[Rfam]
This 69-nucleotide RNA from Branchiostoma floridae belongs to the Rfam family "mir-375 microRNA precursor family". Rfam 15.1 lists 824 matches to the family in 730 species. The base pairs follow the family's consensus structure, which was predicted with RNAalifold. NCBI's taxonomy places the organism under Eukaryota, Eumetazoa, Cephalochordata, Leptocardii, Branchiostoma. Gene Ontology terms of the family: miRNA-mediated post-transcriptional gene silencing and RISC complex.
RNA sequence: GACAGGCCGAGCCUGGCGAGCAAAGCUGUGUCUAAACUUAACGUUUUGUUCGUUCGGCUCGCGUUAUCU
Numbered sequence: 001g002a003c004a005g006g007c008c009g010a011g012c013c014u015g016g017c018g019a020g021c022a023a024a025g026c027u028g029u030g031u032c033u034a035a036a037c038u039u040a041a042c043g044u045u046u047u048g049u050u051c052g053u054u055c056g057g058c059u060c061g062c063g064u065u066a067u068c069u
Stems, first nucleotide, its partner, number of pairs: 001068002004064001006062001008061006017052002020049004025044002